[Rfam]
RNA: Yersinia sRNA 276
Organism: Erwinia sp. 198
RNA sequence: CACCGACAUCAGCGAUUCGUUCUGCGAACCGGCGCCGACGGCAAGAUAGGCAUUCAUGCCCAGCUCUUUCAUUUGCUGUUCACCGAUCACGCGCGUGGUGACGUUGCUCCAGCCGUCCGCCAGCUGGCGCGCCUGAGAGGCGAGAUAGGCGGCGUUGCAGAUGUUCGGCGGCAUAUUGCCGAGAUCCUUGGC
Numbered sequence: 001c002a003c004c005g006a007c008a009u010c011a012g013c014g015a016u017u018c019g020u021u022c023u024g025c026g027a028a029c030c031g032g033c034g035c036c037g038a039c040g041g042c043a044a045g046a047u048a049g050g051c052a053u054u055c056a057u058g059c060c061c062a063g064c065u066c067u068u069u070c071a072u073u074u075g076c077u078g079u080u081c082a083c084c085g086a087u088c089a090c091g092c093g094c095g096u097g098g099u100g101a102c103g104u105u106g107c108u109c110c111a112g113c114c115g116u117c118c119g120c121c122a123g124c125u126g127g128c129g130c131g132c133c134u135g136a137g138a139g140g141c142g143a144g145a146u147a148g149g150c151g152g153c154g155u156u157g158c159a160g161a162u163g164u165u166c167g168g169c170g171g172c173a174u175a176u177u178g179c180c181g182a183g184a185u186c187c188u189u190g191g192c
Stems, first nucleotide, its partner, number of pairs: 005186002013031002016028005034042002050059002062077003078132002081129001083127003087123001091120003095116003100108001102106001133160003137156002140153002164183006
Dot-bracket structure: ....((......((.(((((...))))).))..((.....)).......((......))..(((..........)))((.(.(((.(...(((.(((..(.(...).).....))).)))..).))).).))(((.((.((..........)).)).)))...((((((........)))))).))......